[Rfam]
RNA sequence: CGGCUGUAGCCAAAUUAAAGAGGAAGAAAAACUGGUCGGCUUGCCCUCUCUUCAAUGGGUUAUCCGCUUACCGAUCUUCUAAUAACA
Numbered sequence: 001c002g003g004c005u006g007u008a009g010c011c012a013a014a015u016u017a018a019a020g021a022g023g024a025a026g027a028a029a030a031a032c033u034g035g036u037c038g039g040c041u042u043g044c045c046c047u048c049u050c051u052u053c054a055a056u057g058g059g060u061u062a063u064c065c066g067c068u069u070a071c072c073g074a075u076c077u078u079c080u081a082a083u084a085a086c087a
Stems, first nucleotide, its partner, number of pairs: 022080006034068003038064002043060004
The record is an 87-nucleotide RNA from Digitaria exilis, which matches "Small nucleolar RNA snoR109" in Rfam. The family has 6 seed sequences and 680 matches in Rfam 15.1. NCBI's taxonomy places the organism under Eukaryota, Viridiplantae, Streptophyta, commelinids, Digitaria. The base pairs follow the family's consensus structure, which was predicted with WAR. Gene Ontology terms of the family: nucleolus and RNA processing.